The family of this 69-nucleotide sequence is "mir-1 microRNA precursor family". On this family, see Lee and Ambros, Science 2001: "An extensive class of small RNAs in Caenorhabditis elegans". It is one of the family's seed sequences. This family represents the microRNA (miRNA) mir-1 family. miRNAs are transcribed as ~70nt precursors (modelled here) and subsequently processed by the Dicer enzyme to give a ~22nt product.
RNA sequence: CACAUACUUCUUUAUGUACCCAUAUGAACAUACAAUGCUAUGGAAUGUAAAGAAGUAUGUAUUUUUGGC
Numbered sequence: 001c002a003c004a005u006a007c008u009u010c011u012u013u014a015u016g017u018a019c020c021c022a023u024a025u026g027a028a029c030a031u032a033c034a035a036u037g038c039u040a041u042g043g044a045a046u047g048u049a050a051a052g053a054a055g056u057a058u059g060u061a062u063u064u065u066u067g068g069c
Base pairs, nucleotide, nucleotide: 002060003059004058005057006056007055008054009053010052011051012050013049014048015047016046017045020043021042022041023040024039